This 106-nucleotide sequence from Papaver somniferum belongs to the Rfam family "Small nucleolar RNA snoR97".
The base pairs follow the family's consensus structure, which was predicted with WAR.
It is annotated as an H/ACA-box small nucleolar RNA.
Its family is annotated with nucleolus and RNA processing in the Gene Ontology.
NCBI's taxonomy places the organism under Eukaryota, Euphyllophyta, Papaveraceae, Papaveroideae, Papaver.

[Rfam]
RNA sequence: GGUAACUGCUUGCCAUAUAGACUAAAAAAACUCAUAUAAAGUGUGUUAUCUGUCAGCUUCUUCUUUCGGAAUUUAUGAGACCGCAGUCAACUACAACACUAUAUGU
Numbered sequence: 001g002g003u004a005a006c007u008g009c010u011u012g013c014c015a016u017a018u019a020g021a022c023u024a025a026a027a028a029a030a031c032u033c034a035u036a037u038a039a040a041g042u043g044u045g046u047u048a049u050c051u052g053u054c055a056g057c058u059u060c061u062u063c064u065u066u067c068g069g070a071a072u073u074u075a076u077g078a079g080a081c082c083g084c085a086g087u088c089a090a091c092u093a094c095a096a097c098a099c100u101a102u103a104u105g106u
Base pairs, nucleotide, nucleotide: 043099044098045097046096047095056087057086058085060083062080063079064078065077